RNA sequence: AUAAUGAUGCGGGGGGACUCUUUGGAGUUGAGAAGGUAAAACCUGACCCUUUGAACCUGUUGGUUAAGACCAACGUAGGGAGCAAUCAAUACAAAGAA
Number, nucleotide and partner (000 for none) at each position: 001a000002u000003a000004a000005u000006g086007a000008u084009g083010c082011g050012g049013g048014g047015g000016g044017a028018c027019u026020c025021u000022u000023u000024g000025g020026a019027g018028u017029u000030g000031a000032g000033a000034a000035g043036g042037u041038a000039a000040a000041a037042c036043c035044u016045g000046a000047c014048c013049c012050u011051u000052u000053g000054a000055a000056c079057c078058u077059g076060u073061u072062g071063g070064u000065u000066a000067a000068g000069a000070c063071c062072a061073a060074c000075g000076u059077a058078g057079g056080g000081a000082g010083c009084a008085a000086u006087c000088a000089a000090u000091a000092c000093a000094a000095a000096g000097a000098a000
Overview: The family of this 98-nucleotide RNA sequence from Erysipelotrichaceae bacterium MTC7 is "TPP riboswitch aptamer (THI element)". The organism belongs to Erysipelotrichaceae, within Bacteria. The family's consensus secondary structure is taken from published work. From the family's description: Vitamin B(1) in its active form thiamin pyrophosphate (TPP) is an essential coenzyme that is synthesised by coupling of pyrimidine and thiazole moieties in bacteria.